[Rfam]
RNA sequence: CCAGUGGUAGUUGAGUUCGGACUUAACAACGUAAAUCCACCGCCCGACACGAUCGAAGAGG
Numbered sequence: 001c002c003a004g005u006g007g008u009a010g011u012u013g014a015g016u017u018c019g020g021a022c023u024u025a026a027c028a029a030c031g032u033a034a035a036u037c038c039a040c041c042g043c044c045c046g047a048c049a050c051g052a053u054c055g056a057a058g059a060g061g
Stems, first nucleotide, its partner, number of pairs: 004040004010030004014023003
Dot-bracket structure: ...((((..(((((((....)))...))))......)))).....................
A member of the RNA family "cow-rumen-1 RNA", 61 nucleotides long. Pairs were carried over by alignment from the consensus structure, which is taken from published work. Rfam's curators put it in the seed alignment.